RNA sequence: GGCGUAAAGCGUUCGUAGGCUGUUUGUUAAGUCUGGAGUUAAAUCCCGGGGCUCAACCCCGGCUCGCUUUGGAUACUAGCAAACUAGAGUUAGAUAGAGGUAAGCGGAAUUCCAUGUGAAGCGGUGAAAUGCGUAGAUAUAUGGAAGAACACCAAAGGCGAAGGCAGCUUACUGGGUCUAUACUGACGCUGAGGGACGAAAGCGUGGGGAGCAAACAGGAUUAGAUACCCUGGUAGUCCACGCCGUAAACGAUGAUCAUUAGUCGGUGGAGAAUCACUGACGCAGCUAACGCAUUAAAUGAUCCGCCUGAGUAGUAUGCUCGCAAGAGUGAAACUUAAAGGAAU
Number, nucleotide and partner (000 for none) at each position: 001g307002g306003c305004g000005u000006a000007a000008a000009g304010c000011g197012u196013u195014c194015g000016u191017a000018g190019g189020c188021u000022g084023u083024u082025u081026g080027u079028u078029a000030a077031g076032u073033c072034u071035g070036g069037a068038g067039u066040u000041a000042a000043a000044u000045c000046c062047c061048g060049g059050g058051g057052c000053u000054c000055a000056a000057c051058c050059c049060c048061g047062g046063c000064u000065c000066g039067c038068u037069u036070u035071g034072g033073a032074u000075a000076c031077u030078a028079g027080c026081a025082a024083a023084c022085u000086a000087g000088a184089g183090u182091u180092a179093g178094a177095u176096a000097g000098a000099g173100g172101u171102a170103a169104g168105c167106g150107g000108a000109a000110u146111u145112c144113c143114a142115u141116g140117u139118g000119a000120a000121g132122c131123g130124g000125u000126g000127a000128a000129a000130u123131g122132c121133g000134u000135a000136g000137a000138u000139a117140u116141a115142u114143g113144g112145a111146a110147g000148a000149a000150c106151a000152c000153c000154a000155a000156a000157g000158g165159c164160g000161a000162a000163g000164g159165c158166a000167g105168c104169u103170u102171a101172c100173u099174g000175g000176g095177u094178c093179u092180a091181u000182a090183c089184u088185g000186a000187c000188g020189c019190u018191g016192a000193g000194g014195g013196a012197c011198g000199a000200a000201a000202g243203c242204g241205u240206g239207g238208g000209g000210a000211g237212c236213a000214a000215a000216c232217a231218g230219g229220a000221u000222u000223a000224g000225a000226u000227a000228c000229c219230c218231u217232g216233g000234u000235a000236g212237u211238c207239c206240a205241c204242g203243c202244c000245g000246u000247a000248a000249a000250c000251g000252a000253u000254g303255a302256u301257c300258a299259u298260u000261a000262g281263u280264c279265g278266g277267u276268g275269g274270a000271g000272a000273a000274u269275c268276a267277c266278u265279g264280a263281c262282g000283c000284a000285g292286c291287u000288a000289a000290c000291g286292c285293a000294u000295u000296a000297a000298a259299u258300g257301a256302u255303c254304c009305g003306c002307c001308u000309g336310a335311g334312u000313a000314g000315u000316a000317u000318g329319c328320u327321c326322g000323c000324a000325a000326g321327a320328g319329u318330g000331a000332a000333a000334c311335u310336u309337a000338a000339a000340g000341g000342a000343a000344u000
The family of this 344-nucleotide part of an RNA from Metamycoplasma hominis is "Bacterial small subunit ribosomal RNA".
It scores 1513 bits against the family's covariance model.
The literature on the family includes a 2001 paper in Science by Yusupov et al., "Crystal structure of the ribosome at 5.5 A resolution".
Taxonomically the source falls in Metamycoplasma hominis (Bacteria, Mycoplasmoidales, Metamycoplasmataceae, Metamycoplasma).